[Rfam]
A member of the RNA family "Bacillus-plasmid RNA" from Enterococcus pallens, 66 nucleotides long. The organism belongs to Enterococcus pallens, within Bacteria. The base pairs follow the family's consensus structure, which is taken from published work.

RNA sequence: GCCGUCAAUGGUAAAUGUCUGACUGAACGUAGGGAAGGAAUUUAAGGAAUUGACGGCUAAAAACAA
Numbered sequence: 001g002c003c004g005u006c007a008a009u010g011g012u013a014a015a016u017g018u019c020u021g022a023c024u025g026a027a028c029g030u031a032g033g034g035a036a037g038g039a040a041u042u043u044a045a046g047g048a049a050u051u052g053a054c055g056g057c058u059a060a061a062a063a064c065a066a
Stems, first nucleotide, its partner, number of pairs: 001057009